Enterovirus cis-acting replication element: a 61-nucleotide sequence from Enterovirus betacoxsackie. Rfam classes the family as a cis-regulatory element. The source organism's lineage runs through Viruses, Pisuviricota, Enterovirus, Enterovirus betacoxsackie and Enterovirus B. The family's consensus secondary structure is taken from published work. The first step in the replication of the plus-stranded poliovirus RNA is the synthesis of a complementary minus strand. This process is initiated by the covalent attachment of UMP to the terminal protein VPg, yielding VPgpU and VPgpUpU. A small RNA hairpin in the coding region of protein 2C as the site in PV1(M) RNA that is used as the primary template for the in vitro uridylylation. Gene Ontology term of the family: RNA replication.
[Rfam]
RNA sequence: AAUGAGUAACUACAUACAGUUCAAGUCCAAAUGCCGUAUUGAACCUGUAUGCUUGCUCUUG
Numbered sequence: 001a002a003u004g005a006g007u008a009a010c011u012a013c014a015u016a017c018a019g020u021u022c023a024a025g026u027c028c029a030a031a032u033g034c035c036g037u038a039u040u041g042a043a044c045c046u047g048u049a050u051g052c053u054u055g056c057u058c059u060u061g
Stems, first nucleotide, its partner, number of pairs: 013051005019044006028036001